[Rfam]
RNA sequence: AAAGUCUACAGGGGGAGCCUAUUGGCUGAGAGUGAACAAUUGAAGUUCUUACCCUUUGAACCUGUUAGUUAAUACUAGCGUAGGGAUGGUAGCUUUUUUGAUGG
Numbered sequence: 001a002a003a004g005u006c007u008a009c010a011g012g013g014g015g016a017g018c019c020u021a022u023u024g025g026c027u028g029a030g031a032g033u034g035a036a037c038a039a040u041u042g043a044a045g046u047u048c049u050u051a052c053c054c055u056u057u058g059a060a061c062c063u064g065u066u067a068g069u070u071a072a073u074a075c076u077a078g079c080g081u082a083g084g085g086a087u088g089g090u091a092g093c094u095u096u097u098u099u100g101a102u103g104g
Stems, first nucleotide, its partner, number of pairs: 006092004011055004016049001017026003034048004061084004065078004
RNA: TPP riboswitch aptamer (THI element)
Organism: Virgibacillus oceani